Description
This 104-nucleotide RNA from Lentibacillus populi belongs to the Rfam family "SAM riboswitch aptamer (S box leader)". About the family: The SAM riboswitch is found upstream of a number of genes which code for proteins involved in methionine or cysteine biosynthesis in Gram-positive bacteria. The match comes from Rfam's covariance-model search (92 bits).

[Rfam]
RNA sequence: UUCUUAUCAAGAGAAGUGGAGGGAAAGGCCCUAUGAAACUUCGGCAACAGGUUACAUGAAACGCUGUGCCAAAUCCUGCAGGCUACAUGUCUGGAAGAUAAGAA
Numbered sequence: 001u002u003c004u005u006a007u008c009a010a011g012a013g014a015a016g017u018g019g020a021g022g023g024a025a026a027g028g029c030c031c032u033a034u035g036a037a038a039c040u041u042c043g044g045c046a047a048c049a050g051g052u053u054a055c056a057u058g059a060a061a062c063g064c065u066g067u068g069c070c071a072a073a074u075c076c077u078g079c080a081g082g083c084u085a086c087a088u089g090u091c092u093g094g095a096a097g098a099u100a101a102g103a104a
Base pairs, nucleotide, nucleotide: 001104002103003102004101005100006099007098008097013042014041015040016039017038021031022030023029026077027076028075043070044069045068046067048066049065050062052060053059074096079093080092081091082090083089